MIR394 microRNA precursor family: a 105-nucleotide sequence from Momordica charantia. NCBI's taxonomy places the organism under Eukaryota, Viridiplantae, Streptophyta, Spermatophyta, Momordica. Its family is annotated with miRNA-mediated post-transcriptional gene silencing and RISC complex in the Gene Ontology.
[Rfam]
RNA sequence: CCAACAGAAUUUAUUGGCAUUCUGUCCACCUCCACAACACCCUUUAAAAUUCACUUCUUUCUAUCAUUCUUGGAGGUGGGCAUACUGCCAACUGAGCUCUGUUUG
Numbered sequence: 001c002c003a004a005c006a007g008a009a010u011u012u013a014u015u016g017g018c019a020u021u022c023u024g025u026c027c028a029c030c031u032c033c034a035c036a037a038c039a040c041c042c043u044u045u046a047a048a049a050u051u052c053a054c055u056u057c058u059u060u061c062u063a064u065c066a067u068u069c070u071u072g073g074a075g076g077u078g079g080g081c082a083u084a085c086u087g088c089c090a091a092c093u094g095a096g097c098u099c100u101g102u103u104u105g
Stems, first nucleotide, its partner, number of pairs: 011095001014091006023082011